Source information:
A member of the RNA family "Small nucleolar RNA SNORD20" from Chiloscyllium punctatum, 80 nucleotides long. About the family: U20 is a C/D box small nucleolar RNA that is encoded in intron 11 of the nucleolin gene in human, mouse and rat. A search with the family's covariance model found it, with a score of 69 bits. On this family, see Nicoloso et al., Mol Cell Biol 1994: "U20, a novel small nucleolar RNA, is encoded in an intron of the nucleolin gene in mammals". Its family is annotated with nucleolus and RNA processing in the Gene Ontology. The pairing is the family consensus, mapped onto this sequence.
RNA sequence: UGGAUAUGAUGAAUGUCAGUCUGAAACACAUGAUGAACCUUCUUUUCAGAAUUCCUCUAGAUAGUCAAGUACUGAUCCAA
Numbered sequence: 001u002g003g004a005u006a007u008g009a010u011g012a013a014u015g016u017c018a019g020u021c022u023g024a025a026a027c028a029c030a031u032g033a034u035g036a037a038c039c040u041u042c043u044u045u046u047c048a049g050a051a052u053u054c055c056u057c058u059a060g061a062u063a064g065u066c067a068a069g070u071a072c073u074g075a076u077c078c079a080a
Stems, first nucleotide, its partner, number of pairs: 001079004
The source organism's lineage runs through Eukaryota, Vertebrata, Chondrichthyes, Elasmobranchii and Chiloscyllium. It is annotated as a C/D-box small nucleolar RNA.